[Rfam]
RNA sequence: AAUGAGCUAUGAUGUGAAAGGUUGCGACACACCCGGCCGCUUUGCCACAGGUGUGUCGGUAAUUUUCACGGAGCUAGUCUUGUUUUUAAAAUAGACGAGGG
Numbered sequence: 001a002a003u004g005a006g007c008u009a010u011g012a013u014g015u016g017a018a019a020g021g022u023u024g025c026g027a028c029a030c031a032c033c034c035g036g037c038c039g040c041u042u043u044g045c046c047a048c049a050g051g052u053g054u055g056u057c058g059g060u061a062a063u064u065u066u067c068a069c070g071g072a073g074c075u076a077g078u079c080u081u082g083u084u085u086u087u088a089a090a091a092u093a094g095a096c097g098a099g100g101g
Stems, first nucleotide, its partner, number of pairs: 014069003018066004025058009078100008